[Rfam]
RNA: U4 spliceosomal RNA
Organism: Adineta steineri
RNA sequence: AUCUUUGCGCAGCGGCAGUACCUUAUCCAAUGAGCGUUUCGCGAGGAGAGGUUAUUGCUAGUUGAAAACUAAUACCCAAUAUCCCGCACAUUCUGGCUCUGUCGGAAUGGUUGCAAUUUUUGCUGCUUCUUCGGAGG
Numbered sequence: 001a002u003c004u005u006u007g008c009g010c011a012g013c014g015g016c017a018g019u020a021c022c023u024u025a026u027c028c029a030a031u032g033a034g035c036g037u038u039u040c041g042c043g044a045g046g047a048g049a050g051g052u053u054a055u056u057g058c059u060a061g062u063u064g065a066a067a068a069c070u071a072a073u074a075c076c077c078a079a080u081a082u083c084c085c086g087c088a089c090a091u092u093c094u095g096g097c098u099c100u101g102u103c104g105g106a107a108u109g110g111u112u113g114c115a116a117u118u119u120u121u122g123c124u125g126c127u128u129c130u131u132c133g134g135a136g137g
Stems, first nucleotide, its partner, number of pairs: 020052005026047003034042003086114003089109009128137003